RNA sequence: UAGUGAAAUGAUGACAAUCAUGUUUCAAGACUAACUUGAAAUGUAGAAAACAUUCUUUGCCAAUCACUU
Numbered sequence: 001u002a003g004u005g006a007a008a009u010g011a012u013g014a015c016a017a018u019c020a021u022g023u024u025u026c027a028a029g030a031c032u033a034a035c036u037u038g039a040a041a042u043g044u045a046g047a048a049a050a051c052a053u054u055c056u057u058u059g060c061c062a063a064u065c066a067c068u069u
Base pairs, nucleotide, nucleotide: 002068003067004066005065006064
Dot-bracket structure: .(((((.........................................................))))).
Shown here is a 69-nucleotide RNA sequence from Galemys pyrenaicus, a member of the family "Small nucleolar RNA SNORD2". NCBI's taxonomy places the organism under Eukaryota, Tetrapoda, Amniota, Talpidae, Galemys. For this family Rfam cites "Identification of a novel box C/D snoRNA from mouse nucleolar cDNA library" (Zhou et al., Gene, 2004).